[Rfam]
RNA sequence: AAUUUUUUUUUGGAUAUAAAACACUCAUGUCGAUAAAAUGACUUGAAUUUUAU
Dot-bracket structure: ..........(.(((((.........))))).)....................
Numbered sequence: 001a002a003u004u005u006u007u008u009u010u011u012g013g014a015u016a017u018a019a020a021a022c023a024c025u026c027a028u029g030u031c032g033a034u035a036a037a038a039u040g041a042c043u044u045g046a047a048u049u050u051u052a053u
Stems, first nucleotide, its partner, number of pairs: 011033001013031005

Notes:
Rfam assigns this 53-nucleotide RNA from Phaseolus vulgaris to the family "Plastid-atpF group II-D1 intron". The literature on the family includes a 2023 paper in Plant Commun by Richter et al., "Retrograde signaling in plants: A critical review focusing on the GUN pathway and beyond". The match comes from Rfam's covariance-model search (59 bits). The family has 49 seed sequences and 1,372 matches in Rfam 15.1. Gene Ontology term of the family: Group II intron splicing. Rfam describes the family as follows. Plastid atpF is a non-coding RNA (ncRNA) recognised in plastids. It has been reported in the intron group II-D1 region of ATP synthase (atpF) genes. Taxonomically the source falls in Phaseolus (Eukaryota, Streptophyta, Embryophyta, Gunneridae).